[Rfam]
RNA: Bacterial large subunit ribosomal RNA, nucleotides 2614 to 2859
RNA sequence: GGAAGUUUGCGAGGACCUGACCUUAGUACGAGAGGACCGGGUUGGACCGACCGCUGGUGUACCGGUUGUGAUGCCAAUUGCAUUGCCGGGUAGCUACGUCGGGAAGAGAUAAGCGCUGAAAGCAUCUAAGUGCGAAACUCCCCUCAAGAUGAGACUUCCAAACAGGGCCGUCAGAGACGAUGACGUUGAUAGGCUACAGGUGUAAAGGCAGUAAUGUCAUAGCUGAGUAGUACUAAUUGCCCGAAA
Numbered sequence: 001g002g003a004a005g006u007u008u009g010c011g012a013g014g015a016c017c018u019g020a021c022c023u024u025a026g027u028a029c030g031a032g033a034g035g036a037c038c039g040g041g042u043u044g045g046a047c048c049g050a051c052c053g054c055u056g057g058u059g060u061a062c063c064g065g066u067u068g069u070g071a072u073g074c075c076a077a078u079u080g081c082a083u084u085g086c087c088g089g090g091u092a093g094c095u096a097c098g099u100c101g102g103g104a105a106g107a108g109a110u111a112a113g114c115g116c117u118g119a120a121a122g123c124a125u126c127u128a129a130g131u132g133c134g135a136a137a138c139u140c141c142c143c144u145c146a147a148g149a150u151g152a153g154a155c156u157u158c159c160a161a162a163c164a165g166g167g168c169c170g171u172c173a174g175a176g177a178c179g180a181u182g183a184c185g186u187u188g189a190u191a192g193g194c195u196a197c198a199g200g201u202g203u204a205a206a207g208g209c210a211g212u213a214a215u216g217u218c219a220u221a222g223c224u225g226a227g228u229a230g231u232a233c234u235a236a237u238u239g240c241c242c243g244a245a246a
Stems, first nucleotide, its partner, number of pairs: 001159008011145004017045007047102005055096003062089005067082006106140003113133005165242004169185005190235003193231005199224002203219001207218004